[Rfam]
This 52-nucleotide RNA from Stappia sediminis belongs to the Rfam family "serC leader". A search with the family's covariance model found it, with a score of 65 bits. Gene Ontology term of the family: regulation of gene expression. Taxonomically the source falls in Stappia (Bacteria, Pseudomonadota, Alphaproteobacteria, Hyphomicrobiales).
RNA sequence: GCGCGGGACAUCCCUCCCCAACGAGGGACAACUAUCUGGAAGGGUAGAUACC
Numbered sequence: 001g002c003g004c005g006g007g008a009c010a011u012c013c014c015u016c017c018c019c020a021a022c023g024a025g026g027g028a029c030a031a032c033u034a035u036c037u038g039g040a041a042g043g044g045u046a047g048a049u050a051c052c
Base pairs, nucleotide, nucleotide: 011028012027013026014025015024016023032047033046034045035044036043037042